[Rfam]
Nucleotides: 117
Stems, first nucleotide, its partner, number of pairs: 001030003006024005055110001057108001066096008075087001077085001
Number, partner (000 for none) and nucleotide at each position: 001030a002029g003028g004000u005000a006024g007023c008022a009021u010020u011000c012000a013000a014000a015000a016000g017000a018000a019000a020010g021009g022008u023007g024006c025000c026000c027000a028003c029002c030001u031000g032000a033000u034000a035000c036000a037000a038000u039000c040000u041000u042000c043000c044000u045000a046000a047000a048000g049000u050000a051000a052000a053000c054000u055110u056000g057108u058000c059000a060000u061000u062000u063000c064000c065000u066096g067095c068094u069093u070092g071091u072090g073089g074000u075087u076000u077085u078000g079000u080000a081000a082000g083000u084000g085077a086000c087075a088000u089073c090072u091071a092070c093069a094068a095067g096066u097000c098000u099000c100000a101000u102000a103000u104000g105000a106000c107000a108057a109000g110055a111000u112000a113000g114000c115000c116000a117000u
The family of this 117-nucleotide RNA sequence from Zea mays is "Small nucleolar RNA snoR104". Pairs were carried over by alignment from the consensus structure, which was predicted with WAR. For this family Rfam cites "Experimental RNomics: identification of 140 candidates for small non-messenger RNAs in the plant Arabidopsis thaliana" (Marker et al., Curr Biol, 2002). A search with the family's covariance model found it, with a score of 82 bits. By type it is an H/ACA-box small nucleolar RNA. The family has 8 seed sequences and 612 matches in Rfam 15.1. The source organism's lineage runs through Eukaryota, Viridiplantae, Embryophyta, Petrosaviidae and Zea.